Ribosomal protein L20 leader: a 139-nucleotide RNA from Peribacillus faecalis. It is annotated as a cis-regulatory leader. The match comes from Rfam's covariance-model search (71 bits).
[Rfam]
RNA sequence: UGAGGAAAGAAGAGGCACCCGCUUCUCACCUGCUGACACGAUUAUGUAGUUUACAGGUCUUAUGGUUUGAUUAUUUGACGUAUGUCUAAUUAGUCUAUCAUCAGUGUGGGUGUGCAAACAUCCACACUUUUUUUAUUGC
Numbered sequence: 001u002g003a004g005g006a007a008a009g010a011a012g013a014g015g016c017a018c019c020c021g022c023u024u025c026u027c028a029c030c031u032g033c034u035g036a037c038a039c040g041a042u043u044a045u046g047u048a049g050u051u052u053a054c055a056g057g058u059c060u061u062a063u064g065g066u067u068u069g070a071u072u073a074u075u076u077g078a079c080g081u082a083u084g085u086c087u088a089a090u091u092a093g094u095c096u097a098u099c100a101u102c103a104g105u106g107u108g109g110g111u112g113u114g115c116a117a118a119c120a121u122c123c124a125c126a127c128u129u130u131u132u133u134u135a136u137u138g139c
Base pairs, nucleotide, nucleotide: 011026012025013024014023015022016021028058029057030056035051036050037049038047039046105126106125107124108123109122110121111120112119113118
About this RNA: Lineage of the source: Bacteria > Bacillati > Bacillota > Bacilli > Peribacillus. Rfam's curators write: This family is a putative r-protein leader autoregulatory structure found in B. subtilis and other low-GC Gram-positive bacteria.